[Rfam]
RNA: Glycine riboswitch aptamer
Nucleotides: 090
Base pairs, nucleotide, nucleotide: 008083009082010081011080012079013078020035021034022033023032037070038069039068040066041065044064045063046062050057051056
Number, partner (000 for none) and nucleotide at each position: 001000c002000a003000c004000a005000u006000c007000c008083c009082g010081c011080c012079a013078g014000g015000a016000g017000a018000g019000a020035g021034c022033u023032u024000c025000u026000c027000c028000a029000g030000g031000g032023a033022a034021g035020c036000c037070g038069c039068c040066g041065a042000a043000g044064g045063c046062g047000c048000a049000g050057g051056c052000a053000g054000c055000a056051g057050c058000c059000g060000a061000a062046c063045g064044c065041u066040c067000a068039g069038g070037c071000a072000a073000a074000a075000g076000g077000a078013c079012u080011g081010g082009c083008g084000a085000c086000a087000c088000g089000c090000c